[Rfam]
RNA sequence: AAAAAUACGAUCAUAUUACCUCAUAUAUUUCUGGAAUAAGGCCGGAAGUUUCUACCCAGCACCGAGAAUGCUGGACUAUGAGGGAAGGUGAAAAUGUG
Numbered sequence: 001a002a003a004a005a006u007a008c009g010a011u012c013a014u015a016u017u018a019c020c021u022c023a024u025a026u027a028u029u030u031c032u033g034g035a036a037u038a039a040g041g042c043c044g045g046a047a048g049u050u051u052c053u054a055c056c057c058a059g060c061a062c063c064g065a066g067a068a069u070g071c072u073g074g075a076c077u078a079u080g081a082g083g084g085a086a087g088g089u090g091a092a093a094a095u096g097u098g
Stems, first nucleotide, its partner, number of pairs: 019083007029047006056074006

Rfam assigns this 98-nucleotide RNA sequence from Bacilli bacterium VT-13-104 to the family "Purine riboswitch aptamer". Gene Ontology term of the family: purine nucleobase biosynthetic process. Rfam's curators write: Riboswitches are metabolite binding domains within certain messenger RNAs that serve as precision sensors for their corresponding targets.